RNA sequence: GCGCCGGUUGCGGCUCAUCGUAUGGCAGUUUGCUGAGUAUUGUAUGCCAGCUGCCUAGCGAAGGGCAACAAAAGGCAG
Numbered sequence: 001g002c003g004c005c006g007g008u009u010g011c012g013g014c015u016c017a018u019c020g021u022a023u024g025g026c027a028g029u030u031u032g033c034u035g036a037g038u039a040u041u042g043u044a045u046g047c048c049a050g051c052u053g054c055c056u057a058g059c060g061a062a063g064g065g066c067a068a069c070a071a072a073a074g075g076c077a078g
Base pairs, nucleotide, nucleotide: 003076004075005074008071009070010069013066014065015064016063018061019060020059021058024055025054026053027052032051033050034049

This 78-nucleotide sequence from Galleria mellonella belongs to the Rfam family "mir-745 microRNA precursor family". Its family is annotated with RISC complex and miRNA-mediated post-transcriptional gene silencing in the Gene Ontology. The base pairs follow the family's consensus structure, which was predicted with RNAalifold.